[Rfam]
RNA sequence: CGUCGAGUCCCAGGGCCGUAUCGGUCCAGGAGCCGGGGACCCAAUCUCAUUGGGGUGAAUCCGCGCCAGCGGUAGGGCGAACUCCACGCCCGAACCCGUCAGCUAACCCGGUAGACGUCCAUGGAGAGGAGA
Numbered sequence: 001c002g003u004c005g006a007g008u009c010c011c012a013g014g015g016c017c018g019u020a021u022c023g024g025u026c027c028a029g030g031a032g033c034c035g036g037g038g039a040c041c042c043a044a045u046c047u048c049a050u051u052g053g054g055g056u057g058a059a060u061c062c063g064c065g066c067c068a069g070c071g072g073u074a075g076g077g078c079g080a081a082c083u084c085c086a087c088g089c090c091c092g093a094a095c096c097c098g099u100c101a102g103c104u105a106a107c108c109c110g111g112u113a114g115a116c117g118u119c120c121a122u123g124g125a126g127a128g129g130a131g132a
Stems, first nucleotide, its partner, number of pairs: 001117004008031003032112006042052002053097003061072004075091004
The record is a 132-nucleotide RNA sequence from Sphaerisporangium rufum, which matches "c-di-AMP riboswitch aptamer (ydaO/yuaA leader)" in Rfam. Rfam describes the family as follows. This family represents a conserved RNA structure found upstream of the ydaO and yuaA genes in Bacillus subtilis and related genes in other bacteria. The ydaO/yuaA element is thought to act as a genetic 'off' switch for the ydaO and yuaA genes in its native state. It is believed that the element may be triggered during osmotic shock leading to activation of ydaO, a predicted amino acid transporter gene, and members of the yuaA-yubG operon which code for KtrA and KtrB K+ transporters. A search with the family's covariance model found it, with a score of 83 bits. Pairs were carried over by alignment from the consensus structure.